[Rfam]
Record summary
A member of the RNA family "Plastid-rps12 3UTR RNA" from Capsicum baccatum, 97 nucleotides long.
RNA sequence: AGUUUCCAUUGGUGUAAAUCCAAUCGCCUGAAUUUAAGAUGAUAAGAAAUUCUCCAUUGGUAACAAAUAGUUAUCCAUUAAGAGGAGUAAAUAUUAU
Dot-bracket structure: ........((((.......))))............................((((((.((((((.....)))))).)).....))))..........
Description: Rfam's curators write: Plastid rpl20 is a non-coding RNA (ncRNA) recognised in plastids. It was found in the three prime untranslated region (3UTR) of rps12 gene, its 3UTR location sugest a role in transcript maduration. The match comes from Rfam's covariance-model search (109 bits).